[Rfam]
RNA sequence: GCAGGGCUGAAUACUGCCAUCUUUUUUAAAAUCAGUGGUUUACAUAGCCAUACACCAGGCAGAAAAGAAAAGAGUGGUCUUCCCUUUAAAGUGGUUAUAAUCGUGUGCUAAGUUUUUUUUUUUCCCCCAUAGCAUAUCAUUAUUCAAGGGAAAUACAAAG
Numbered sequence: 001g002c003a004g005g006g007c008u009g010a011a012u013a014c015u016g017c018c019a020u021c022u023u024u025u026u027u028a029a030a031a032u033c034a035g036u037g038g039u040u041u042a043c044a045u046a047g048c049c050a051u052a053c054a055c056c057a058g059g060c061a062g063a064a065a066a067g068a069a070a071a072g073a074g075u076g077g078u079c080u081u082c083c084c085u086u087u088a089a090a091g092u093g094g095u096u097a098u099a100a101u102c103g104u105g106u107g108c109u110a111a112g113u114u115u116u117u118u119u120u121u122u123u124c125c126c127c128c129a130u131a132g133c134a135u136a137u138c139a140u141u142a143u144u145c146a147a148g149g150g151a152a153a154u155a156c157a158a159a160g
Base pairs, nucleotide, nucleotide: 001060002059005056006055014047015046016045020044022042080153081152083149084148085147086146088144089143098142099141100140101139103137104136105135106134107133108132109131110130
A member of the RNA family "Small nucleolar RNA SNORA15" from Odocoileus virginianus, 160 nucleotides long. Rfam's curators write: ACA15 is a member of the H/ACA class of snoRNA that guide the sites of modification of uridines to pseudouridines.